The family of this 385-nucleotide RNA from Filibacter tadaridae is "Bacterial RNase P class B". A search with the family's covariance model found it, with a score of 318 bits. The family's consensus secondary structure is taken from published work. By type it is a ribozyme. For this family Rfam cites "Ribonuclease P: unity and diversity in a tRNA processing ribozyme" (Frank and Pace, Annu Rev Biochem, 1998).
RNA sequence: UAAUUUAGGUAAUCGCUGCAAAACUUGUUUUUGCAGAGGAAAGUCCAUGCUCACACGGAUCUGAGAUGACCGUAGUGUUCGUGCUCGGCGAAAAAAUAAGCCGGGGAUAUGUGCACCGCACAUAGACGGCGGGAAUAAAUCCUAAGUCUUCGGAUAUGGAUGAGGUUCCCUGAACAGUGCCACAGUGACGUAGCUGAUGCGGAAACGAAUCAGAUGGAACGCGGUAAACCCCACGAGUGAGAAACCCAAACUAUGGUAGGGGCACUCUUCUGAAGGAAUUGAACUGAAGAGGGGACGGGCUAAUCGCCUGUAGAUAGAUGAUUACCACCCAAUGUACGAGGCGUUAGCCGUUUGAGUACGCGGGAACAAAACAUGGCUUAUCGAA
Numbered sequence: 001u002a003a004u005u006u007a008g009g010u011a012a013u014c015g016c017u018g019c020a021a022a023a024c025u026u027g028u029u030u031u032u033g034c035a036g037a038g039g040a041a042a043g044u045c046c047a048u049g050c051u052c053a054c055a056c057g058g059a060u061c062u063g064a065g066a067u068g069a070c071c072g073u074a075g076u077g078u079u080c081g082u083g084c085u086c087g088g089c090g091a092a093a094a095a096a097u098a099a100g101c102c103g104g105g106g107a108u109a110u111g112u113g114c115a116c117c118g119c120a121c122a123u124a125g126a127c128g129g130c131g132g133g134a135a136u137a138a139a140u141c142c143u144a145a146g147u148c149u150u151c152g153g154a155u156a157u158g159g160a161u162g163a164g165g166u167u168c169c170c171u172g173a174a175c176a177g178u179g180c181c182a183c184a185g186u187g188a189c190g191u192a193g194c195u196g197a198u199g200c201g202g203a204a205a206c207g208a209a210u211c212a213g214a215u216g217g218a219a220c221g222c223g224g225u226a227a228a229c230c231c232c233a234c235g236a237g238u239g240a241g242a243a244a245c246c247c248a249a250a251c252u253a254u255g256g257u258a259g260g261g262g263c264a265c266u267c268u269u270c271u272g273a274a275g276g277a278a279u280u281g282a283a284c285u286g287a288a289g290a291g292g293g294g295a296c297g298g299g300c301u302a303a304u305c306g307c308c309u310g311u312a313g314a315u316a317g318a319u320g321a322u323u324a325c326c327a328c329c330c331a332a333u334g335u336a337c338g339a340g341g342c343g344u345u346a347g348c349c350g351u352u353u354g355a356g357u358a359c360g361c362g363g364g365a366a367c368a369a370a371a372c373a374u375g376g377c378u379u380a381u382c383g384a385a
Stems, first nucleotide, its partner, number of pairs: 004385003007381001008326007016036006041379003045376005050241005055073004060069002079236005084105006106127001108124005128231002131170004139161004146155003177229002179225003194213005200207002245261003265294007295311006329364002333360005